This 79-nucleotide RNA from Photinus pyralis belongs to the Rfam family "mir-980 microRNA precursor family". The family has 8 seed sequences and 121 matches in Rfam 15.1. Its family is annotated with miRNA-mediated post-transcriptional gene silencing and RISC complex in the Gene Ontology. It scores 60 bits against the family's covariance model.

RNA sequence: CUUGCAAUGCGGCUCGUCAUCGGGUAGCAUCUAGCUUGAUUUUGAAUGCUAGCUGCCUUAUGAAGGGCAACAUGGCUUU
Numbered sequence: 001c002u003u004g005c006a007a008u009g010c011g012g013c014u015c016g017u018c019a020u021c022g023g024g025u026a027g028c029a030u031c032u033a034g035c036u037u038g039a040u041u042u043u044g045a046a047u048g049c050u051a052g053c054u055g056c057c058u059u060a061u062g063a064a065g066g067g068c069a070a071c072a073u074g075g076c077u078u079u
Stems, first nucleotide, its partner, number of pairs: 004076002007073003012068004017063004023057002031052005